[Rfam]
RNA: mir-9242 microRNA precursor family
Organism: Cnephaeus nilssonii
RNA sequence: GGCAUCCCUCUGCAGGGUAAUCGAUCGUGGAGCCCCCCCAUCGAUCACUCCGCAGAGGGUGGCC
Numbered sequence: 001g002g003c004a005u006c007c008c009u010c011u012g013c014a015g016g017g018u019a020a021u022c023g024a025u026c027g028u029g030g031a032g033c034c035c036c037c038c039c040a041u042c043g044a045u046c047a048c049u050c051c052g053c054a055g056a057g058g059g060u061g062g063c064c
Stems, first nucleotide, its partner, number of pairs: 001064003006059008015050004020045006027038001029036002